mir-393 microRNA precursor family: a 130-nucleotide sequence from Arabis alpina.

[Rfam]
RNA sequence: GAAGGAUGAAUCCAAAGAGAUGGCAUGAUCCAAAACCAAGCAAAUUUUUGAUAUUUUUUUCAAAAAUAAGAAAAUAAUAGGGAAAAUUCACCUUAAUUAGGAUCAAUGCGAUCCCUUUGGAUCCUUCCUC
Numbered sequence: 001g002a003a004g005g006a007u008g009a010a011u012c013c014a015a016a017g018a019g020a021u022g023g024c025a026u027g028a029u030c031c032a033a034a035a036c037c038a039a040g041c042a043a044a045u046u047u048u049u050g051a052u053a054u055u056u057u058u059u060u061c062a063a064a065a066a067u068a069a070g071a072a073a074a075u076a077a078u079a080g081g082g083a084a085a086a087u088u089c090a091c092c093u094u095a096a097u098u099a100g101g102a103u104c105a106a107u108g109c110g111a112u113c114c115c116u117u118u119g120g121a122u123c124c125u126u127c128c129u130c
Stems, first nucleotide, its partner, number of pairs: 003129004008124001010122008019113003023109003026105006035097001
A reference for the family is Kruszka et al. (2012), "Role of microRNAs and other sRNAs of plants in their changing environments", J Plant Physiol.